[Rfam]
RNA sequence: AACCCGGAGUCCGAAAAGGGGAAACAGAGUAGGAA
Numbered sequence: 001a002a003c004c005c006g007g008a009g010u011c012c013g014a015a016a017a018g019g020g021g022a023a024a025c026a027g028a029g030u031a032g033g034a035a
Stems, first nucleotide, its partner, number of pairs: 003020003010034003
RNA: DUF805b RNA